[Rfam]
The record is a 95-nucleotide RNA, which matches "Rhodo-rpoB RNA" in Rfam.
RNA sequence: GGCUCGGGAGUGGACCUGUGGGAGGGUCCGCAUGAAUGGAGCCACACCCCCCGUUUCGCAAGCGGCGCGGCGCCUGAUGCCCGACAGCGCGCCCG
Numbered sequence: 001g002g003c004u005c006g007g008g009a010g011u012g013g014a015c016c017u018g019u020g021g022g023a024g025g026g027u028c029c030g031c032a033u034g035a036a037u038g039g040a041g042c043c044a045c046a047c048c049c050c051c052c053g054u055u056u057c058g059c060a061a062g063c064g065g066c067g068c069g070g071c072g073c074c075u076g077a078u079g080c081c082c083g084a085c086a087g088c089g090c091g092c093c094c095g
Stems, first nucleotide, its partner, number of pairs: 001043005010031008068095002070092001071089003075086002
Description:
The sequence is in the family's curated seed alignment.